The record is a 67-nucleotide sequence from Macaca mulatta, which matches "tRNA" in Rfam. The match comes from Rfam's covariance-model search (56 bits). The source organism's lineage runs through Eukaryota, Chordata, Simiiformes, Cercopithecidae and Macaca. The family's consensus secondary structure is taken from published work.

RNA sequence: GGUAGAAUGGCUGAGUAAGCAUUAGGCUGUAAACCUAGAGACAGAGAUUAAAGUUCUCUUUUUACCA
Numbered sequence: 001g002g003u004a005g006a007a008u009g010g011c012u013g014a015g016u017a018a019g020c021a022u023u024a025g026g027c028u029g030u031a032a033a034c035c036u037a038g039a040g041a042c043a044g045a046g047a048u049u050a051a052a053g054u055u056c057u058c059u060u061u062u063u064a065c066c067a
Stems, first nucleotide, its partner, number of pairs: 001066007010020003022038005043059005

Rfam describes the family as follows. Transfer RNA (tRNA) molecules are approximately 80 nucleotides in length.